[Rfam]
Nucleotides: 074
Stems, first nucleotide, its partner, number of pairs: 012037002018031005040068004047064002049060003
Number, partner (000 for none) and nucleotide at each position: 001000a002000a003000c004000g005000u006000u007000a008000c009000c010000c011000g012037g013036c014000a015000a016000a017000c018031c019030c020029g021028u022027c023000g024000a025000a026000a027022g028021a029020c030019g031018g032000c033000g034000a035000c036013g037012c038000a039000a040068a041067g042066c043065u044000a045000c046000a047064g048063g049060g050059c051058c052000u053000u054000c055000a056000c057000u058051g059050g060049c061000a062000g063048c064047c065043a066042g067041u068040u069000g070000c071000a072000a073000u074000g